Rfam assigns this 64-nucleotide RNA sequence from Gluconacetobacter diazotrophicus to the family "Fluoride riboswitch aptamer (crcB RNA motif)". It is one of the family's seed sequences. A reference for the family is Baker et al. (2012), "Widespread genetic switches and toxicity resistance proteins for fluoride", Science. Taxonomically the source falls in Gluconacetobacter diazotrophicus (Bacteria, Pseudomonadati, Pseudomonadota, Gluconacetobacter).

RNA sequence: CGUCCGGUCGGAGAUGGAGUACCUCCGUAUAACCGCCCCCAGGGCUGAUGACUCCUGCUCGCAU
Numbered sequence: 001c002g003u004c005c006g007g008u009c010g011g012a013g014a015u016g017g018a019g020u021a022c023c024u025c026c027g028u029a030u031a032a033c034c035g036c037c038c039c040c041a042g043g044g045c046u047g048a049u050g051a052c053u054c055c056u057g058c059u060c061g062c063a064u
Base pairs, nucleotide, nucleotide: 010025011024013022016055017054018053019052020051035045036044037043038042